The record is a 159-nucleotide RNA sequence from Methylomonas denitrificans, which matches "FMN riboswitch aptamer (RFN element)" in Rfam. Rfam links the family to the GO term FMN binding. The RFN element is a highly conserved domain that is found frequently in the 5'-untranslated regions of prokaryotic mRNAs that encode for flavin mononucleotide (FMN) biosynthesis and transport proteins.

[Rfam]
RNA sequence: GCUUGUACUCAGGGCGGGGCGGAAUUCCCCACCGGCGGUAUCUCGGGGUUGACUCGGGGAGCCCGCGAGCGCCGCAAUCGCAGUUGUUGAGAAUGCGGGUCAGCAGAUCCGGUGAGAUGCCGGAGCCGACGGUCAUAGUCCGGAUGAAAGAGAACAGCG
Numbered sequence: 001g002c003u004u005g006u007a008c009u010c011a012g013g014g015c016g017g018g019g020c021g022g023a024a025u026u027c028c029c030c031a032c033c034g035g036c037g038g039u040a041u042c043u044c045g046g047g048g049u050u051g052a053c054u055c056g057g058g059g060a061g062c063c064c065g066c067g068a069g070c071g072c073c074g075c076a077a078u079c080g081c082a083g084u085u086g087u088u089g090a091g092a093a094u095g096c097g098g099g100u101c102a103g104c105a106g107a108u109c110c111g112g113u114g115a116g117a118u119g120c121c122g123g124a125g126c127c128g129a130c131g132g133u134c135a136u137a138g139u140c141c142g143g144a145u146g147a148a149a150g151a152g153a154a155c156a157g158c159g
Stems, first nucleotide, its partner, number of pairs: 003157004008152003017029003031139002033128002035066004061126002069104002108124005130142003